[Rfam]
RNA sequence: CUGGGCUAUGGAGACAUGUAUCCUCAGACGUGGUCUGGGAUGUUGGUGGGAGCACUGUGCGCCCUGGCUGGUGUGCUGACCAUUGCCAUGCCGGUGCCCGUCAUCGUGAACAAU
Number, nucleotide and partner (000 for none) at each position: 001c000002u113003g000004g111005g000006c000007u108008a107009u106010g105011g104012a000013g102014a101015c100016a000017u000018g097019u096020a095021u094022c000023c000024u000025c000026a000027g000028a000029c000030g000031u000032g000033g000034u000035c000036u000037g077038g076039g000040a074041u000042g000043u000044u000045g000046g000047u000048g000049g063050g062051a000052g000053c000054a000055c000056u000057g000058u000059g000060c000061g000062c050063c049064c000065u000066g000067g000068c000069u000070g000071g000072u000073g000074u040075g000076c038077u037078g000079a000080c000081c000082a000083u000084u000085g000086c000087c000088a000089u000090g000091c000092c000093g000094g021095u020096g019097c018098c000099c000100g015101u014102c013103a000104u011105c010106g009107u008108g007109a000110a000111c004112a000113a002114u000
Rfam assigns this 114-nucleotide RNA sequence to the family "Potassium channel RNA editing signal". Rfam links the family to the GO term adenosine to inosine editing. Rfam describes the family as follows. This family represents a group of sequences related to the human potassium channel Kv1.1 hairpin element which directs the efficient modification of an adenosine to inosine by an adenosine deaminase acting on RNA (ADAR). The ADAR modification causes an isoleucine/valine recoding event which lies in the ion-conducting pore of the potassium channel. It is thought that this editing event targets the process of fast inactivation and allows a more rapid recovery from inactivation at negative potentials. It is one of the family's seed sequences.